[Rfam]
Description:
msiK RNA: a 60-nucleotide RNA from Corynebacterium pyruviciproducens. The family's RNA type in Rfam is cis-regulatory element.
RNA sequence: GCCACUCCUCUUUCACUCGGAUCGUUUGGCACGUACCUGCCAAUGAAAGUAAAGGAAACA
Numbered sequence: 001g002c003c004a005c006u007c008c009u010c011u012u013u014c015a016c017u018c019g020g021a022u023c024g025u026u027u028g029g030c031a032c033g034u035a036c037c038u039g040c041c042a043a044u045g046a047a048a049g050u051a052a053a054g055g056a057a058a059c060a
Stems, first nucleotide, its partner, number of pairs: 010049006026043006